[Rfam]
The family of this 55-nucleotide sequence from [Enterobacter] lignolyticus is "algC RNA".
RNA sequence: CCAAUUAUGGCCUCGGCAGCGGGUCAGGGCCGACUGCUGCCUGAAGAAGGGGAUA
Numbered sequence: 001c002c003a004a005u006u007a008u009g010g011c012c013u014c015g016g017c018a019g020c021g022g023g024u025c026a027g028g029g030c031c032g033a034c035u036g037c038u039g040c041c042u043g044a045a046g047a048a049g050g051g052g053a054u055a
Stems, first nucleotide, its partner, number of pairs: 009025005
The family's consensus secondary structure is taken from published work. Rfam's curators put it in the seed alignment.